Rfam assigns this 228-nucleotide RNA sequence from Arthrobacter psychrolactophilus to the family "c-di-AMP riboswitch aptamer (ydaO/yuaA leader)". This family represents a conserved RNA structure found upstream of the ydaO and yuaA genes in Bacillus subtilis and related genes in other bacteria.
[Rfam]
RNA sequence: UCGCACGCAGGACUAAAACAUUCAGGCAAGGACGGGGGAACCACUUAUCGGUUGGCCAUUUGGUCAACCUUGGGGUGAAGCCCAAUCUCAUCGCAUCACAUUGCCGUGACGCUUUCCGUGGGGAAGCGCCAUAGCUUGACGUGUGCCGUGAGAGCUGGGCCGGAUCAAAAGUUACACUCUCUGAUCCGAAUCCGACAGCUAACUUCGCAGGUGAACUAUAGAGAGGUA
Numbered sequence: 001u002c003g004c005a006c007g008c009a010g011g012a013c014u015a016a017a018a019c020a021u022u023c024a025g026g027c028a029a030g031g032a033c034g035g036g037g038g039a040a041c042c043a044c045u046u047a048u049c050g051g052u053u054g055g056c057c058a059u060u061u062g063g064u065c066a067a068c069c070u071u072g073g074g075g076u077g078a079a080g081c082c083c084a085a086u087c088u089c090a091u092c093g094c095a096u097c098a099c100a101u102u103g104c105c106g107u108g109a110c111g112c113u114u115u116c117c118g119u120g121g122g123g124a125a126g127c128g129c130c131a132u133a134g135c136u137u138g139a140c141g142u143g144u145g146c147c148g149u150g151a152g153a154g155c156u157g158g159g160c161c162g163g164a165u166c167a168a169a170a171g172u173u174a175c176a177c178u179c180u181c182u183g184a185u186c187c188g189a190a191u192c193c194g195a196c197a198g199c200u201a202a203c204u205u206c207g208c209a210g211g212u213g214a215a216c217u218a219u220a221g222a223g224a225g226g227u228a
Base pairs, nucleotide, nucleotide: 006213007212008211013031014030033207034206035205036204037203042072043071073193074192075191081159082158083157084156162187163186164185165184166183167182